[Rfam]
Shown here is a 47-nucleotide RNA sequence from Pteropus alecto, a member of the family "Histone 3' UTR stem-loop". By type it is a cis-regulatory element. Lineage of the source: Eukaryota > Bilateria > Teleostomi > Pteropodinae > Pteropus.
RNA sequence: CCAAAGGCUCUUUUCAGAGCCACUCCACUUGCCAUGAAAAGAACUGU
Numbered sequence: 001c002c003a004a005a006g007g008c009u010c011u012u013u014u015c016a017g018a019g020c021c022a023c024u025c026c027a028c029u030u031g032c033c034a035u036g037a038a039a040a041g042a043a044c045u046g047u
Base pairs, nucleotide, nucleotide: 006021007020008019009018010017011016